[Rfam]
RNA sequence: UAGGGGAGUCAGGGCUCAGGCCCCCCUCCUGAGCCCCGGAUAACUCUAUCAGUGGGGGGGCA
Numbered sequence: 001u002a003g004g005g006g007a008g009u010c011a012g013g014g015c016u017c018a019g020g021c022c023c024c025c026c027u028c029c030u031g032a033g034c035c036c037c038g039g040a041u042a043a044c045u046c047u048a049u050c051a052g053u054g055g056g057g058g059g060g061c062a
Stems, first nucleotide, its partner, number of pairs: 008041003012036004017031004022060006
Dot-bracket structure: .......[[[.[[[[.[[[[.((((((]]]].]]]]..]]].............))))))..
RNA: Gag/pol translational readthrough site